[Rfam]
RNA sequence: AGUUAACGAUGACAGUGAAUAUAUUGAGUAGCGACGGUAUAUUCUAUGAGGUUAACUAUAUACGUAGUAGUGAUUUAAAGUUCUCCCAAGGAUACUACAACAUAAGAGCCUAGUACAUCUUAAUUGUACAGGCUCUU
Number, nucleotide and partner (000 for none) at each position: 001a000002g056003u055004u054005a053006a052007c051008g000009a000010u000011g000012a000013c000014a000015g000016u000017g044018a043019a042020u041021a040022u039023a038024u037025u036026g035027a000028g000029u000030a000031g000032c000033g000034a000035c026036g025037g024038u023039a022040u021041a020042u019043u018044c017045u000046a000047u000048g000049a000050g000051g007052u006053u005054a004055a003056c002057u000058a000059u000060a000061u000062a000063c000064g000065u000066a000067g000068u000069a000070g098071u097072g096073a000074u094075u000076u000077a000078a000079a000080g000081u000082u092083c091084u090085c000086c000087c000088a000089a000090g084091g083092a082093u000094a074095c000096u072097a071098c070099a000100a000101c000102a000103u000104a000105a136106g135107a134108g133109c132110c131111u130112a000113g129114u128115a127116c126117a125118u000119c000120u000121u000122a000123a000124u000125u117126g116127u115128a114129c113130a111131g110132g109133c108134u107135c106136u105137u000

Shown here is a 137-nucleotide sequence from Staphylococcus epidermidis, a member of the family "RNA Staph. aureus A".
NCBI's taxonomy places the organism under Bacteria, Bacillati, Bacillota, Caryophanales, Staphylococcus epidermidis.
From the family's description: Represses the translation of the transcriptional regulator MgrA by binding to its mRNA, enhances biofilm formation and decreases bacterial virulence. Other mRNAs, including SsaA-like enzymes involved in peptidoglycan metabolism and the secreted anti-inflammatory FLIPr protein were validated as direct targets of RsaA.
A reference for the family is Romilly et al. (2014), "A non-coding RNA promotes bacterial persistence and decreases virulence by regulating a regulator in Staphylococcus aureus", PLoS Pathog.
By type it is a small RNA.
Rfam links the family to the GO terms mRNA binding and sRNA-mediated gene silencing.